RNA sequence: CAGAUACAAUGAUGACAGCAUAGUUCAGCAGAAAAUCCUGUGUUGAACACUCCUGGUUUUCGCCCCUAUCUGACGUAUCUG
Numbered sequence: 001c002a003g004a005u006a007c008a009a010u011g012a013u014g015a016c017a018g019c020a021u022a023g024u025u026c027a028g029c030a031g032a033a034a035a036u037c038c039u040g041u042g043u044u045g046a047a048c049a050c051u052c053c054u055g056g057u058u059u060u061c062g063c064c065c066c067u068a069u070c071u072g073a074c075g076u077a078u079c080u081g
Base pairs, nucleotide, nucleotide: 004078005077006076007075
The family of this 81-nucleotide RNA sequence from Alaudala cheleensis is "Small nucleolar RNA snR60/Z15/Z230/Z193/J17". By type it is a C/D-box small nucleolar RNA. Rfam 15.1 lists 3,592 matches to the family in 1,855 species. The source organism's lineage runs through Eukaryota, Metazoa, Dipnotetrapodomorpha, Sylvioidea and Alaudala.